[Rfam]
RNA sequence: GGCUGCAAGUCUGAGACCACUUCAGAAGCGCUCAUAGUGCAGCCCUGUCAGAUUCCAGUGAAUCUGCAAACUCUGCU
Numbered sequence: 001g002g003c004u005g006c007a008a009g010u011c012u013g014a015g016a017c018c019a020c021u022u023c024a025g026a027a028g029c030g031c032u033c034a035u036a037g038u039g040c041a042g043c044c045c046u047g048u049c050a051g052a053u054u055c056c057a058g059u060g061a062a063u064c065u066g067c068a069a070a071c072u073c074u075g076c077u
Base pairs, nucleotide, nucleotide: 013045015044017042023075024074025073026072028040029039030038049066050065051064052063053062054061055060

Mammalian CPEB3 ribozyme: a 77-nucleotide RNA from Crocodylus porosus. NCBI's taxonomy places the organism under Eukaryota, Eumetazoa, Sauria, Archelosauria, Crocodylus. A search with the family's covariance model found it, with a score of 47 bits. The mammalian CPEB3 ribozyme is a self cleaving RNA located in the second intron of the CPEB3 gene which belongs to a family of genes regulating messenger RNA polyadenylation.